Shown here is a 151-nucleotide sequence from Methanoculleus bourgensis, a member of the family "Group II catalytic intron D1-D4-7". Group II introns are found in rRNA, tRNA and mRNA of organelles in fungi, plants and protists, and also in mRNA in bacteria.
RNA sequence: CAUCUUAUCCGUUUGAGAUGUACCUACCGCGGCGUGCGCCCCCGGUAACGGGGGUGUGAAACCCAUGGGACAACGAGGAGAUGAGCAGGACCCUGUUCUGUUCCAUCCGCCAGGUAAAUGACGCCAGGGAGAAGCAAACACUGAAUCACCG
Numbered sequence: 001c002a003u004c005u006u007a008u009c010c011g012u013u014u015g016a017g018a019u020g021u022a023c024c025u026a027c028c029g030c031g032g033c034g035u036g037c038g039c040c041c042c043c044g045g046u047a048a049c050g051g052g053g054g055u056g057u058g059a060a061a062c063c064c065a066u067g068g069g070a071c072a073a074c075g076a077g078g079a080g081a082u083g084a085g086c087a088g089g090a091c092c093c094u095g096u097u098c099u100g101u102u103c104c105a106u107c108c109g110c111c112a113g114g115u116a117a118a119u120g121a122c123g124c125c126a127g128g129g130a131g132a133a134g135c136a137a138a139c140a141c142u143g144a145a146u147c148a149c150c151g
Base pairs, nucleotide, nucleotide: 002019003018004017005016006015007014028067029066031064032063033058034057035056036055037054039052042051043050044049083098084097085096086095087094088093099123100122101121102120107114108113125143126142127141129139
Background: On this family, see Chu et al., EMBO J 2001: "Control of branch-site choice by a group II intron".